Bacterial RNase P class A: a 386-nucleotide sequence from Porphyromonas sp. HMSC077F02. The family's consensus secondary structure is taken from published work. Rfam classes the family as a ribozyme. Ribonuclease P (RNase P) is a ubiquitous endoribonuclease, found in archaea, bacteria and eukarya as well as chloroplasts and mitochondria. Its best characterised activity is the generation of mature 5'-ends of tRNAs by cleaving the 5'-leader elements of precursor-tRNAs. Cellular RNase Ps are ribonucleoproteins.

[Rfam]
RNA sequence: UGAGUCCGAAAGCGUGCCGCUGGUGUAGCGUGCUACACGAGAGGAAAGUCUGGGCCACAAAGAGCACUACACUUCCUAACGGGAAGCUAUCGUGAGGUAGAUGAGCAUAACAGAAAAUAACCGCCACGUGGCUUUGCACUGAGUGCAAACUUCACAGGUAAGGGUGAAAAGGUGGGGUAAGAGCCCACCGAGCUGAUAGUGAUAUCGAGCUGCAGUAUGCAUUGUGGGUGGAAAGGUCGCGUAUACCAGCGCUUGUAGGGUGGCUCGCCCGAUGCUGGGGGGUAGACCGAUAGAGCCUAGGGGUGACUCUAGGUCUAGAUAGAUGGCAAGCAGCCUUAUCCCUAGGGAGAAGGCAGACAGAACCCGGCUUAUUGAGGACUCAUACG
Numbered sequence: 001u002g003a004g005u006c007c008g009a010a011a012g013c014g015u016g017c018c019g020c021u022g023g024u025g026u027a028g029c030g031u032g033c034u035a036c037a038c039g040a041g042a043g044g045a046a047a048g049u050c051u052g053g054g055c056c057a058c059a060a061a062g063a064g065c066a067c068u069a070c071a072c073u074u075c076c077u078a079a080c081g082g083g084a085a086g087c088u089a090u091c092g093u094g095a096g097g098u099a100g101a102u103g104a105g106c107a108u109a110a111c112a113g114a115a116a117a118u119a120a121c122c123g124c125c126a127c128g129u130g131g132c133u134u135u136g137c138a139c140u141g142a143g144u145g146c147a148a149a150c151u152u153c154a155c156a157g158g159u160a161a162g163g164g165u166g167a168a169a170a171g172g173u174g175g176g177g178u179a180a181g182a183g184c185c186c187a188c189c190g191a192g193c194u195g196a197u198a199g200u201g202a203u204a205u206c207g208a209g210c211u212g213c214a215g216u217a218u219g220c221a222u223u224g225u226g227g228g229u230g231g232a233a234a235g236g237u238c239g240c241g242u243a244u245a246c247c248a249g250c251g252c253u254u255g256u257a258g259g260g261u262g263g264c265u266c267g268c269c270c271g272a273u274g275c276u277g278g279g280g281g282g283u284a285g286a287c288c289g290a291u292a293g294a295g296c297c298u299a300g301g302g303g304u305g306a307c308u309c310u311a312g313g314u315c316u317a318g319a320u321a322g323a324u325g326g327c328a329a330g331c332a333g334c335c336u337u338a339u340c341c342c343u344a345g346g347g348a349g350a351a352g353g354c355a356g357a358c359a360g361a362a363c364c365c366g367g368c369u370u371a372u373u374g375a376g377g378a379c380u381c382a383u384a385c386g
Stems, first nucleotide, its partner, number of pairs: 001382007010373002012331002015328004020041002023038006046370003050367005055231004062266004067227005072086005087100005101222002105220005121163002123159003128155003131151001171189006190213001191211004196205003235288004246278005258270004295314008
Dot-bracket structure: (((((((..(([[.[[[[.((.((((((....)))))).))....(((.(((((((((...[[[[.((((((((((.....)))))(((((....)))))((..(((((...........(((((..((((...................).))).)))..)).......((((((.......))))))(((((.(((....)))..)))).)..))))))))))))))))...((((.......(((((.......((((.]]]]))))...)))))......))))......((((((((....))))))))..........]]]].]]...............................)))))))).))..)))))))....